[Rfam]
RNA sequence: CAGUGUUACGGAUCUUUUAGAAUUUGUCUAGCAGCUUUUCCCAUCCUGACCGGAAGACCCCC
Numbered sequence: 001c002a003g004u005g006u007u008a009c010g011g012a013u014c015u016u017u018u019a020g021a022a023u024u025u026g027u028c029u030a031g032c033a034g035c036u037u038u039u040c041c042c043a044u045c046c047u048g049a050c051c052g053g054a055a056g057a058c059c060c061c062c
Base pairs, nucleotide, nucleotide: 034059036057037056038055039054040053041052044049
Shown here is a 62-nucleotide RNA sequence from Equus caballus, a member of the family "U7 small nuclear RNA". It scores 47 bits against the family's covariance model. The base pairs follow the family's consensus structure, which was predicted with PFOLD.